[Rfam]
RNA sequence: CGGGAGGUCACAUGCUUCUUUAUAUACCCAUAUGAACUACAUUGUUAUGGAAUGUAAGGAAGUGUGUGGCUUCUCU
Numbered sequence: 001c002g003g004g005a006g007g008u009c010a011c012a013u014g015c016u017u018c019u020u021u022a023u024a025u026a027c028c029c030a031u032a033u034g035a036a037c038u039a040c041a042u043u044g045u046u047a048u049g050g051a052a053u054g055u056a057a058g059g060a061a062g063u064g065u066g067u068g069g070c071u072u073c074u075c076u
Stems, first nucleotide, its partner, number of pairs: 007070019028050005

The family of this 76-nucleotide sequence from Xenopus tropicalis is "mir-1 microRNA precursor family". NCBI's taxonomy places the organism under Eukaryota, Craniata, Tetrapoda, Xenopus, Silurana. For this family Rfam cites "An extensive class of small RNAs in Caenorhabditis elegans" (Lee and Ambros, Science, 2001). It scores 71 bits against the family's covariance model. The family has 137 seed sequences and 4,474 matches in Rfam 15.1. Rfam links the family to the GO terms RISC complex and miRNA-mediated post-transcriptional gene silencing. The family's consensus secondary structure was predicted with RNAalifold. About the family: This family represents the microRNA (miRNA) mir-1 family. miRNAs are transcribed as ~70nt precursors (modelled here) and subsequently processed by the Dicer enzyme to give a ~22nt product.